[Rfam]
RNA sequence: GCCCCGGGACGACCCGGUGCCCGCACUGACGCUCGGGGACGGCCCCU
Number, nucleotide and partner (000 for none) at each position: 001g020002c019003c000004c017005c016006g015007g014008g013009a000010c000011g000012a000013c008014c007015c006016g005017g004018u000019g002020c001021c000022c000023g000024c000025a000026c000027u000028g000029a000030c000031g000032c000033u000034c000035g046036g045037g044038g043039a000040c000041g000042g000043c038044c037045c036046c035047u000
RNA: Guanidine-II riboswitch aptamer (mini-ykkC)